[Rfam]
RNA sequence: UUUAAAGUUUUCUAGGGUUCCGCAUAGAGAUGGUCUGGUCCGAGAGAAAACCACAAAUGUUUUGUGACACGGAAGGAUAAAAGCCUGGGAGAU
Numbered sequence: 001u002u003u004a005a006a007g008u009u010u011u012c013u014a015g016g017g018u019u020c021c022g023c024a025u026a027g028a029g030a031u032g033g034u035c036u037g038g039u040c041c042g043a044g045a046g047a048a049a050a051c052c053a054c055a056a057a058u059g060u061u062u063u064g065u066g067a068c069a070c071g072g073a074a075g076g077a078u079a080a081a082a083g084c085c086u087g088g089g090a091g092a093u
Base pairs, nucleotide, nucleotide: 007051008050009049010048011047012046015041016040020038021037022035023032024031025030052066053065054064055063056062057061068088070091074086075085076084
RNA: Guanidine-I riboswitch aptamer